This 78-nucleotide sequence from Gadus morhua belongs to the Rfam family "mir-2188 microRNA precursor family". Rfam links the family to the GO terms miRNA-mediated post-transcriptional gene silencing and RISC complex.

[Rfam]
RNA sequence: UGGCGUGGGAAAGGUCCAACCUCACAUGUCCUGUGCAGCUGUAGGAAGGCUGUGUGGGGUCAGACCUAUCCUACACUG
Numbered sequence: 001u002g003g004c005g006u007g008g009g010a011a012a013g014g015u016c017c018a019a020c021c022u023c024a025c026a027u028g029u030c031c032u033g034u035g036c037a038g039c040u041g042u043a044g045g046a047a048g049g050c051u052g053u054g055u056g057g058g059g060u061c062a063g064a065c066c067u068a069u070c071c072u073a074c075a076c077u078g
Base pairs, nucleotide, nucleotide: 001078002077005074006073007072008071009070010069012067013066014065015064016063019060020059021058023056024055025054026053027052028051030049031048032047